[Rfam]
RNA sequence: GGGCUGGCUCUAGCUCAGUGGUUCCUUCGGUAAAACAUCAGCUUUCAACUUCCUUGCAGAGAUGGUUCAAGACCUGCUAGUGUGCUCUAGUCCUUUU
Numbered sequence: 001g002g003g004c005u006g007g008c009u010c011u012a013g014c015u016c017a018g019u020g021g022u023u024c025c026u027u028c029g030g031u032a033a034a035a036c037a038u039c040a041g042c043u044u045u046c047a048a049c050u051u052c053c054u055u056g057c058a059g060a061g062a063u064g065g066u067u068c069a070a071g072a073c074c075u076g077c078u079a080g081u082g083u084g085c086u087c088u089a090g091u092c093c094u095u096u097u
Base pairs, nucleotide, nucleotide: 002092003091004090005089006088007087013081014080015079018077019076020075021074026071027070029068030067
RNA: Vault RNA